About this RNA:
tRNA: an 83-nucleotide sequence from Marmoricola sp. Leaf446. A search with the family's covariance model found it, with a score of 56 bits. By type it is a transfer RNA.
[Rfam]
RNA sequence: GGCAGGUUGUCCGAGCGGCCAAUGGAAACGGACUGUAAAUCCGUCGACUUAUGUCUACGCAGGUUCGAAUCCUGCACCUGCCA
Number, nucleotide and partner (000 for none) at each position: 001g082002g081003c080004a079005g078006g077007u076008u000009g000010u026011c025012c024013g023014a000015g000016c000017g000018g000019c000020c000021a000022a000023u013024g012025g011026a010027a000028a044029c043030g042031g041032a040033c000034u000035g000036u000037a000038a000039a000040u032041c031042c030043g029044u028045c000046g000047a000048c000049u000050u000051a000052u000053g000054u000055c000056u000057a000058c000059g075060c074061a073062g072063g071064u000065u000066c000067g000068a000069a000070u000071c063072c062073u061074g060075c059076a007077c006078c005079u004080g003081c002082c001083a000

Rfam describes the family as follows. Transfer RNA (tRNA) molecules are approximately 80 nucleotides in length.